tRNA: a 68-nucleotide RNA sequence. Rfam's curators put it in the seed alignment.
[Rfam]
RNA sequence: ACUAAAGUAGUUUAUAAAAACACCAGCCUGUGGAACUGGAGUAACUGGUUAAAACCCGGUCUUAAGUC
Numbered sequence: 001a002c003u004a005a006a007g008u009a010g011u012u013u014a015u016a017a018a019a020a021c022a023c024c025a026g027c028c029u030g031u032g033g034a035a036c037u038g039g040a041g042u043a044a045c046u047g048g049u050u051a052a053a054a055c056c057c058g059g060u061c062u063u064a065a066g067u068c
Base pairs, nucleotide, nucleotide: 001067002066003065005063006062007061010021011020012019013018023039024038025037026036044060045059046058047057048056
Dot-bracket structure: (((.(((..((((....)))).((((.........))))....(((((.......)))))))).))).